The family of this 81-nucleotide sequence from Corynebacterium poyangense is "ctRNA".

RNA sequence: GCUUUCUCCCAGAUGGUGACUGGGAGUUAAGCGAAGCCUGGAGCAGAUGUCGACUGCCCCGGGCUUCAACUAUUCAUCAGU
Number, nucleotide and partner (000 for none) at each position: 001g032002c031003u030004u000005u000006c026007u025008c024009c023010c022011a021012g020013a000014u000015g000016g000017u000018g000019a000020c012021u011022g010023g009024g008025a007026g006027u000028u000029a000030a003031g002032c001033g000034a066035a065036g064037c063038c062039u061040g060041g059042a000043g057044c056045a055046g054047a000048u000049g000050u000051c000052g000053a000054c046055u045056g044057c043058c000059c041060c040061g039062g038063g037064c036065u035066u034067c000068a000069a000070c000071u000072a000073u000074u000075c000076a000077u000078c000079a000080g000081u000

Rolling circle replication plasmids contain a number of mechanisms to maintain a low copy number. One of these methods is to transcribe a small RNA called ctRNA (for counter-transcribed RNA) than is transcribed on the opposite strand to RepB the replication initiation protein. ctRNA binds to the mRNA of repB and causes translational inhibition. By type it is an antisense RNA. The source organism's lineage runs through Bacteria, Actinomycetes, Mycobacteriales, Corynebacteriaceae and Corynebacterium.